[Rfam]
RNA sequence: GCUGUUUUCAGAUGGAUCACUCUGCAACUUCAACACUUGGCACAAUGACAGAAAUUGCACAGUAUCCAUCUGCAAUCCGCA
Numbered sequence: 001g002c003u004g005u006u007u008u009c010a011g012a013u014g015g016a017u018c019a020c021u022c023u024g025c026a027a028c029u030u031c032a033a034c035a036c037u038u039g040g041c042a043c044a045a046u047g048a049c050a051g052a053a054a055u056u057g058c059a060c061a062g063u064a065u066c067c068a069u070c071u072g073c074a075a076u077c078c079g080c081a
Base pairs, nucleotide, nucleotide: 009072010071011070012069013068014067015066016065017064019063020062023059024058025057026056027055029053030052031051
A member of the RNA family "mir-363 microRNA precursor family" from Salarias fasciatus, 81 nucleotides long. For this family Rfam cites "Small RNA expression and strain specificity in the rat" (Linsen et al., BMC Genomics, 2010). A search with the family's covariance model found it, with a score of 67 bits.